[Rfam]
RNA sequence: UUGCCUUAAACUAAUGAGUAAGGAAAACAAAGCGCUGCGGUGAGAGCCGCACGCAGUGCGGGGUCAAAACCUUCACCGUAAUUUUUGAAGGGGAAAGAGGCUGGCGCGGGUACUGACACUGCCCUACUUUGCAGGACUUGCCUGUGUGGGCCUCCCC
Numbered sequence: 001u002u003g004c005c006u007u008a009a010a011c012u013a014a015u016g017a018g019u020a021a022g023g024a025a026a027a028c029a030a031a032g033c034g035c036u037g038c039g040g041u042g043a044g045a046g047c048c049g050c051a052c053g054c055a056g057u058g059c060g061g062g063g064u065c066a067a068a069a070c071c072u073u074c075a076c077c078g079u080a081a082u083u084u085u086u087g088a089a090g091g092g093g094a095a096a097g098a099g100g101c102u103g104g105c106g107c108g109g110g111u112a113c114u115g116a117c118a119c120u121g122c123c124c125u126a127c128u129u130u131g132c133a134g135g136a137c138u139u140g141c142c143u144g145u146g147u148g149g150g151c152c153u154c155c156c157c
Stems, first nucleotide, its partner, number of pairs: 004023005032059008060076001062074002091157003098153005104147003108143005119134004
U12 minor spliceosomal RNA: a 157-nucleotide sequence from Miscanthus lutarioriparius. The family has 62 seed sequences and 2,106 matches in Rfam 15.1. Gene Ontology terms of the family: mRNA branch site recognition, pre-mRNA branch point binding and U12 snRNP. The family's RNA type in Rfam is spliceosomal small nuclear RNA. It scores 81 bits against the family's covariance model. Taxonomically the source falls in Miscanthus (Eukaryota, Petrosaviidae, Andropogonodae, Andropogoneae).